RNA sequence: UGGAAUAAUCUGUAAAGCUCAGGAGGGAUAGCGCCAUGGGAUAGAAGGGGAACUUGUGUUCUGUUUGUCUAAAGGCGCUAUCUAUCCUGAGUUUCAUGGGUUCUUCCU
Number, nucleotide and partner (000 for none) at each position: 001u000002g000003g000004a000005a000006u000007a000008a000009u000010c099011u000012g000013u000014a000015a000016a093017g092018c091019u090020c089021a088022g087023g086024a085025g000026g083027g082028a081029u080030a079031g078032c077033g076034c075035c074036a000037u000038g000039g000040g000041a000042u000043a000044g000045a000046a000047g000048g000049g000050g000051a000052a000053c000054u000055u000056g000057u000058g000059u000060u000061c000062u000063g000064u000065u000066u000067g000068u000069c000070u000071a000072a000073a000074g035075g034076c033077g032078c031079u030080a029081u028082c027083u026084a000085u024086c023087c022088u021089g020090a019091g018092u017093u016094u000095c000096a000097u000098g000099g010100g000101u000102u000103c000104u000105u000106c000107c000108u000